RNA sequence: GCGGUACCGGUUCCCGCGUCGCGCAUCACAGUGUGCCGAUGCGCGCAGGCCGUGACAGACGGAGCGACCCGGCGACC
Numbered sequence: 001g002c003g004g005u006a007c008c009g010g011u012u013c014c015c016g017c018g019u020c021g022c023g024c025a026u027c028a029c030a031g032u033g034u035g036c037c038g039a040u041g042c043g044c045g046c047a048g049g050c051c052g053u054g055a056c057a058g059a060c061g062g063a064g065c066g067a068c069c070c071g072g073c074g075a076c077c
Stems, first nucleotide, its partner, number of pairs: 003077003007072004015066003019062003

L31-Actinobacteria ribosomal protein leader: a 77-nucleotide RNA from Microbispora rosea. Pairs were carried over by alignment from the consensus structure, which is taken from published work.